[Rfam]
RNA sequence: CCCGCGGCUAGACGGAAAGACCCCGUGAACCUUUACUAUAGCUUUGCACUGGACUUUGAACCUAUUUGUGUAGGAUAGGUGGGAGGCUUCGAAGCAGGAACGCCAGUUCUUGUGGAGCCAACCUUGAAAUACCACCCUGGUAUGUUCGAAGUUCUAACCUAGGUCCGUUAUCCGGAUUGGGGACAGUGUAUGGUGGGUAGUUUGACUGGGGCGGUCUCCUCCUAAAGAGUAACGGAGGAGCACGAAGGUACCCUCAGCCUGGUCGGAAAUCAGGCGAUGAGUGCAAUGGCAUAAGGGUGCUUGACUGCGAGACGGACAAGUCGAGCAGGUACGAAAGUAGGUCAUAGUGAUCCGGUGGUUCUGUAUGGAAGGGCCAUCGCUCAACGGAUAAAAGGUACUCCGGGGAUAACAGGCUGAUACCGCCCAAGAGUUCAUAUCGACGGCGGUGUUUGGCACCUCGAUGUCGGCUCAUCACAUCCUGGGGCUGAAGCAGGUCCCAAGGGUAUGGCUGUUCGCCAUUUAAAGUGGUACGCGAGCUGGGUUCAGAACGUCGUGAGACAGUUCGGUCCCUAUCUGCCGUGGGCGUU
Numbered sequence: 001c002c003c004g005c006g007g008c009u010a011g012a013c014g015g016a017a018a019g020a021c022c023c024c025g026u027g028a029a030c031c032u033u034u035a036c037u038a039u040a041g042c043u044u045u046g047c048a049c050u051g052g053a054c055u056u057u058g059a060a061c062c063u064a065u066u067u068g069u070g071u072a073g074g075a076u077a078g079g080u081g082g083g084a085g086g087c088u089u090c091g092a093a094g095c096a097g098g099a100a101c102g103c104c105a106g107u108u109c110u111u112g113u114g115g116a117g118c119c120a121a122c123c124u125u126g127a128a129a130u131a132c133c134a135c136c137c138u139g140g141u142a143u144g145u146u147c148g149a150a151g152u153u154c155u156a157a158c159c160u161a162g163g164u165c166c167g168u169u170a171u172c173c174g175g176a177u178u179g180g181g182g183a184c185a186g187u188g189u190a191u192g193g194u195g196g197g198u199a200g201u202u203u204g205a206c207u208g209g210g211g212c213g214g215u216c217u218c219c220u221c222c223u224a225a226a227g228a229g230u231a232a233c234g235g236a237g238g239a240g241c242a243c244g245a246a247g248g249u250a251c252c253c254u255c256a257g258c259c260u261g262g263u264c265g266g267a268a269a270u271c272a273g274g275c276g277a278u279g280a281g282u283g284c285a286a287u288g289g290c291a292u293a294a295g296g297g298u299g300c301u302u303g304a305c306u307g308c309g310a311g312a313c314g315g316a317c318a319a320g321u322c323g324a325g326c327a328g329g330u331a332c333g334a335a336a337g338u339a340g341g342u343c344a345u346a347g348u349g350a351u352c353c354g355g356u357g358g359u360u361c362u363g364u365a366u367g368g369a370a371g372g373g374c375c376a377u378c379g380c381u382c383a384a385c386g387g388a389u390a391a392a393a394g395g396u397a398c399u400c401c402g403g404g405g406a407u408a409a410c411a412g413g414c415u416g417a418u419a420c421c422g423c424c425c426a427a428g429a430g431u432u433c434a435u436a437u438c439g440a441c442g443g444c445g446g447u448g449u450u451u452g453g454c455a456c457c458u459c460g461a462u463g464u465c466g467g468c469u470c471a472u473c474a475c476a477u478c479c480u481g482g483g484g485c486u487g488a489a490g491c492a493g494g495u496c497c498c499a500a501g502g503g504u505a506u507g508g509c510u511g512u513u514c515g516c517c518a519u520u521u522a523a524a525g526u527g528g529u530a531c532g533c534g535a536g537c538u539g540g541g542u543u544c545a546g547a548a549c550g551u552c553g554u555g556a557g558a559c560a561g562u563u564c565g566g567u568c569c570c571u572a573u574c575u576g577c578c579g580u581g582g583g584c585g586u587u
Base pairs, nucleotide, nucleotide: 001583002582003581004580005579006578007577008576010575011574012573014570015569022404023403024402025401027400028399029396030395031394032393033392035201036200037199038198042193043192045190046189047188048187051154052153053152054151055150056149057148058147059146060145061144063142064141065140066139068137078136079135080134081133082132085119086118087117094113095112096111097110098109099108100107101106158181159180160179162178163177164176165175166174167173204216205215206214207213217239218238219237220236221235222234240385242342243341248300249299250298251297252296253295254280255279257275258274259273260272261271262270281290282289305328306327307326308325311322312321313320330339331338332337353379354378355377356376357375358374359373361372362371413454414453415452417451418448419447420446421445422444423443424442428438429437465540466538467537468536469535470532471529472528473527474526475525478503479502481498482497483496484495485494486493505519506518507517508516509515546564547563548562549561550559551558552557